[Rfam]
RNA sequence: UGGCGCCCAAUGGUGUGGCAUUGGAUACGGGGGAAUUCGUGAGGGAAGAGGCGUCUAAUUGUUAGGCCGAAGAAAAAAAAAAGUGAAAGUCAAUUCGACAAAGGUCACUGCAGGAGCCUGCAGCGCCAUUCUUAAAGGUACAGUAGUGCCUAAUUAUGGGACAAGAAUUAAGUAAGCAUAAAGUUUUUGUUAAGCAAUUAAAAGAAGCUUUAAAGACAUGGGGACUAAAGGUUAAGAGUAAUGAUCUUUUUAAGUUUUUUGACCUUAUUAAGGACACCUGUCCGU
Dot-bracket structure: .....(((......(((........)))..)))......(........)........................................(...((........(....(((.(.......).))).....)...)))......(.((.((((....)))))).)....(((((.................................)).)))......((((((.(..((((((.......))))))......).))))))........(.((((....)))).)
Record summary
Rfam assigns this 285-nucleotide RNA sequence from Sciurus vulgaris to the family "Mason-Pfizer monkey virus packaging signal". Its family is annotated with viral genome packaging in the Gene Ontology. Pairs were carried over by alignment from the consensus structure, which was predicted with PFOLD. Rfam describes the family as follows. This family represents a group of sequences that are related to the Mason-Pfizer monkey virus (MPMV) packaging signal. The packaging signal is located in the 5' UTR and is required for specific RNA encapsidation.